[Rfam]
RNA sequence: AGGUCCGGAUGCCGUGAGGCCUCGGCCCGGUAUCGGCCCUGACGCACCUUCCCCGGCGCCAGGUUCGUGAUCCCGGGCUGGGACCUGACGGCAUCUGUUGUCUUCG
Numbered sequence: 001a002g003g004u005c006c007g008g009a010u011g012c013c014g015u016g017a018g019g020c021c022u023c024g025g026c027c028c029g030g031u032a033u034c035g036g037c038c039c040u041g042a043c044g045c046a047c048c049u050u051c052c053c054c055g056g057c058g059c060c061a062g063g064u065u066c067g068u069g070a071u072c073c074c075g076g077g078c079u080g081g082g083a084c085c086u087g088a089c090g091g092c093a094u095c096u097g098u099u100g101u102c103u104u105c106g
Stems, first nucleotide, its partner, number of pairs: 010093006018085002021082010032071002034067003038063004043058003

This 106-nucleotide RNA sequence from Actinocrispum wychmicini belongs to the Rfam family "mraW RNA".
By type it is a cis-regulatory element.
The family's consensus secondary structure is taken from published work.